[Rfam]
RNA sequence: GCUGGCAUAAUGAUGAGAACCUUUGCCGUUUACCCAUCUGAAGGGUUUUUGAUGUGUAUCUUUGAAUCCGAAAUGCCAGU
Numbered sequence: 001g002c003u004g005g006c007a008u009a010a011u012g013a014u015g016a017g018a019a020c021c022u023u024u025g026c027c028g029u030u031u032a033c034c035c036a037u038c039u040g041a042a043g044g045g046u047u048u049u050u051g052a053u054g055u056g057u058a059u060c061u062u063u064g065a066a067u068c069c070g071a072a073a074u075g076c077c078a079g080u
Stems, first nucleotide, its partner, number of pairs: 001080007
This 80-nucleotide sequence from Pipra filicauda belongs to the Rfam family "Small nucleolar RNA SNORD87". Taxonomically the source falls in Pipra (Eukaryota, Euteleostomi, Sauria, Theropoda). The base pairs follow the family's consensus structure. The family's RNA type in Rfam is C/D-box small nucleolar RNA.